RNA sequence: GUGGGUUAAUGAAGGCUUGCACUGAAAACAGCCCGCUGUGUGUGCAAGCCGGACCUCCUCCCCAU
Number, nucleotide and partner (000 for none) at each position: 001g065002u064003g063004g062005g061006u000007u000008a000009a000010u000011g000012a000013a000014g050015g049016c048017u047018u046019g045020c044021a043022c042023u000024g000025a000026a000027a000028a000029c038030a037031g036032c000033c000034c000035g000036c031037u030038g029039u000040g000041u000042g022043u021044g020045c019046a018047a017048g016049c015050c014051g000052g000053a000054c000055c000056u000057c000058c000059u000060c000061c005062c004063c003064a002065u001
A member of the RNA family "Selenocysteine insertion sequence 1" from Acipenser ruthenus, 65 nucleotides long. The incorporation of selenocysteine into a protein sequence is directed by an in-frame UGA codon (usually a stop codon) within the coding region of the mRNA. Selenoprotein mRNAs contain a conserved secondary structure in the 3' UTR that is required for the distinction of UGA stop from UGA selenocysteine. The selenocysteine insertion sequence (SECIS) is around 60 nt in length and adopts a hairpin structure which is sufficiently well-defined and conserved to act as a computational screen for selenoprotein genes. Rfam classes the family as a cis-regulatory element. For this family Rfam cites "A survey of metazoan selenocysteine insertion sequences" (Lambert et al., Biochimie, 2002).